[Rfam]
RNA sequence: ACGCGCGAAAGGAGGUGGUCCAGAACAUGAUUCAUUCUGGGACUCGCGAGGUGACUGUCCGCUAGUCGCCGUCCCGCCUCGGCUCCGUCGCCCUGCGGCGGAGACUCACCAGUCGUGACGCGACUGGCGAAUCGCAGGCAUUCACCCGAUCCCCGGUGCCGAUGGAUCAGUCCUGUCCAUCACCCGCCCCAUGGCGGGAAGGCCCGGGGAUCGUCCCAU
Numbered sequence: 001a002c003g004c005g006c007g008a009a010a011g012g013a014g015g016u017g018g019u020c021c022a023g024a025a026c027a028u029g030a031u032u033c034a035u036u037c038u039g040g041g042a043c044u045c046g047c048g049a050g051g052u053g054a055c056u057g058u059c060c061g062c063u064a065g066u067c068g069c070c071g072u073c074c075c076g077c078c079u080c081g082g083c084u085c086c087g088u089c090g091c092c093c094u095g096c097g098g099c100g101g102a103g104a105c106u107c108a109c110c111a112g113u114c115g116u117g118a119c120g121c122g123a124c125u126g127g128c129g130a131a132u133c134g135c136a137g138g139c140a141u142u143c144a145c146c147c148g149a150u151c152c153c154c155g156g157u158g159c160c161g162a163u164g165g166a167u168c169a170g171u172c173c174u175g176u177c178c179a180u181c182a183c184c185c186g187c188c189c190c191a192u193g194g195c196g197g198g199a200a201g202g203c204c205c206g207g208g209g210a211u212c213g214u215c216c217c218a219u
Stems, first nucleotide, its partner, number of pairs: 014059006060129007068121002147213010158203003162180006
This 219-nucleotide RNA from Thermomonospora umbrina belongs to the Rfam family "Actinobacteria sRNA Ms_IGR-5". The pairing is the family consensus, mapped onto this sequence. The match comes from Rfam's covariance-model search (96 bits). NCBI's taxonomy places the organism under Bacteria, Bacillati, Actinomycetota, Actinomycetes, Thermomonospora.